[Rfam]
RNA sequence: AAAAUUGUUGCGGUUAAAAAGCUCGUAGUUGCAUUUGUGCGCCGCGCUGUCGGUGCACCGCAUCCGCGGUGAUACUGACACGUCUGCGGAGCAUAUCGUCGGUGAGCCGUCGGUUAAACGUCGGUUCAAUAUCAAAAUCCUAUCGCGGUGCUCUUCAAUGAGUGUCGAGGUGGGCCGACAAUUUUACUUUGAACAAAUUAGAGUGCUCAAAGCGGGCUCAAAAUGCUGCUUGAAUAUUUCGUGCAUGGAAUAAUAGAAUAUGAUCUCGGUUCUAUUUUGUUGGUUUUCAGAACUCCGAGGUAAUGAUUAAUAGGGAUAACUGGGGGCAUUCGUAUUGCGACGUUAGAGGUGAAAUUCUUGGAUCGUCGCAAGACGAACAUCAGCGAAAGCAUUUGCCAAAGGUGUUUUCAUCAAUCAAGAACGAAAGUUAGAGGUUCGAAGGCGAUUAGAUACCGCCCUAGUUCUAACCGUAAAUAUGUCAUCUAGCGAUCCGCCGACGUUACUACAAUGGCUCGGCGGGCAGCUUCCGGGAAACCAAAGAUUUUGGACUCCGGGGGGAGUAUGGUUGCAAAGCUGAAACUUAAAGGAAU
Numbered sequence: 001a002a003a004a005u006u007g008u009u010g011c012g013g014u015u016a017a018a019a020a021g022c023u024c025g026u027a028g029u030u031g032c033a034u035u036u037g038u039g040c041g042c043c044g045c046g047c048u049g050u051c052g053g054u055g056c057a058c059c060g061c062a063u064c065c066g067c068g069g070u071g072a073u074a075c076u077g078a079c080a081c082g083u084c085u086g087c088g089g090a091g092c093a094u095a096u097c098g099u100c101g102g103u104g105a106g107c108c109g110u111c112g113g114u115u116a117a118a119c120g121u122c123g124g125u126u127c128a129a130u131a132u133c134a135a136a137a138u139c140c141u142a143u144c145g146c147g148g149u150g151c152u153c154u155u156c157a158a159u160g161a162g163u164g165u166c167g168a169g170g171u172g173g174g175c176c177g178a179c180a181a182u183u184u185u186a187c188u189u190u191g192a193a194c195a196a197a198u199u200a201g202a203g204u205g206c207u208c209a210a211a212g213c214g215g216g217c218u219c220a221a222a223a224u225g226c227u228g229c230u231u232g233a234a235u236a237u238u239u240c241g242u243g244c245a246u247g248g249a250a251u252a253a254u255a256g257a258a259u260a261u262g263a264u265c266u267c268g269g270u271u272c273u274a275u276u277u278u279g280u281u282g283g284u285u286u287u288c289a290g291a292a293c294u295c296c297g298a299g300g301u302a303a304u305g306a307u308u309a310a311u312a313g314g315g316a317u318a319a320c321u322g323g324g325g326g327c328a329u330u331c332g333u334a335u336u337g338c339g340a341c342g343u344u345a346g347a348g349g350u351g352a353a354a355u356u357c358u359u360g361g362a363u364c365g366u367c368g369c370a371a372g373a374c375g376a377a378c379a380u381c382a383g384c385g386a387a388a389g390c391a392u393u394u395g396c397c398a399a400a401g402g403u404g405u406u407u408u409c410a411u412c413a414a415u416c417a418a419g420a421a422c423g424a425a426a427g428u429u430a431g432a433g434g435u436u437c438g439a440a441g442g443c444g445a446u447u448a449g450a451u452a453c454c455g456c457c458c459u460a461g462u463u464c465u466a467a468c469c470g471u472a473a474a475u476a477u478g479u480c481a482u483c484u485a486g487c488g489a490u491c492c493g494c495c496g497a498c499g500u501u502a503c504u505a506c507a508a509u510g511g512c513u514c515g516g517c518g519g520g521c522a523g524c525u526u527c528c529g530g531g532a533a534a535c536c537a538a539a540g541a542u543u544u545u546g547g548a549c550u551c552c553g554g555g556g557g558g559a560g561u562a563u564g565g566u567u568g569c570a571a572a573g574c575u576g577a578a579a580c581u582u583a584a585a586g587g588a589a590u
Stems, first nucleotide, its partner, number of pairs: 011553003019550001021422001023420002028415003313409004317404002320401002325397004331375002335371008346357003380391001383390002427468006437461001441457004478549003481542003485525003490520008499512003529536002555582003564575004